[Rfam]
RNA sequence: GGAGAUAUCGAUAAUUAUAAAAGUAAUUCCUCAUUUUGACUUGUUUAAUUUGGGCAUGAGAAACCUUUUAUUACACCCAUAAAAUCUAAGCUACU
Numbered sequence: 001g002g003a004g005a006u007a008u009c010g011a012u013a014a015u016u017a018u019a020a021a022a023g024u025a026a027u028u029c030c031u032c033a034u035u036u037u038g039a040c041u042u043g044u045u046u047a048a049u050u051u052g053g054g055c056a057u058g059a060g061a062a063a064c065c066u067u068u069u070a071u072u073a074c075a076c077c078c079a080u081a082a083a084a085u086c087u088a089a090g091c092u093a094c095u
Stems, first nucleotide, its partner, number of pairs: 003095002006093002
A member of the RNA family "Small nucleolar RNA snoR8a" from Theobroma umbraticum, 95 nucleotides long.
Rfam links the family to the GO terms nucleolus and RNA processing.
The base pairs follow the family's consensus structure, which was predicted with WAR.
The source organism's lineage runs through Eukaryota, Viridiplantae, Gunneridae, Malvales and Theobroma.
A reference for the family is Brown et al. (2001), "Multiple snoRNA gene clusters from Arabidopsis", RNA.